[Rfam]
Description: A member of the RNA family "mir-30 microRNA precursor family" from Kryptolebias marmoratus, 78 nucleotides long. The base pairs follow the family's consensus structure, which was predicted with PFOLD. Rfam describes the family as follows. This family consists of the mammalian microRNA (miRNA) precursor mir-30a. Animal miRNAs are transcribed as ~70nt precursors and subsequently processed by the Dicer enzyme to give a ~22nt product. In this case the mature sequence comes from both the 3' (miR-30) and 5' (mir-97-6) arms of the precursor. The extents of the hairpin precursors are not generally known and are estimated based on hairpin prediction. The organism belongs to Kryptolebias, within Eukaryota.
RNA sequence: CCAGUUCGUGUAAACAUCCUACACUCAGCUGAAAUCAGUUCCAGUGGAGGCUGAGAGAAGGUUGUUUACGUGCUCUGG
Number, nucleotide and partner (000 for none) at each position: 001c000002c077003a076004g075005u000006u000007c000008g071009u070010g069011u068012a067013a066014a065015c064016a063017u000018c061019c060020u059021a000022c057023a000024c055025u054026c053027a052028g051029c050030u049031g000032a000033a000034a000035u000036c000037a000038g000039u000040u000041c000042c000043a000044g000045u000046g000047g000048a000049g030050g029051c028052u027053g026054a025055g024056a000057g022058a000059a020060g019061g018062u000063u016064g015065u014066u013067u012068a011069c010070g009071u008072g000073c000074u000075c004076u003077g002078g000